[Rfam]
RNA: small nucleolar RNA snoR114
Organism: Manihot esculenta
RNA sequence: GAGCUGUGAUGAAUCCGGCGCUCAAUGAUGGAUGGGGUCCAUCAGCAUCAUCUGAAUGUUAAGAUGAUAUUAAACGCGACUGAGCUC
Numbered sequence: 001g002a003g004c005u006g007u008g009a010u011g012a013a014u015c016c017g018g019c020g021c022u023c024a025a026u027g028a029u030g031g032a033u034g035g036g037g038u039c040c041a042u043c044a045g046c047a048u049c050a051u052c053u054g055a056a057u058g059u060u061a062a063g064a065u066g067a068u069a070u071u072a073a074a075c076g077c078g079a080c081u082g083a084g085c086u087c
Stems, first nucleotide, its partner, number of pairs: 001087004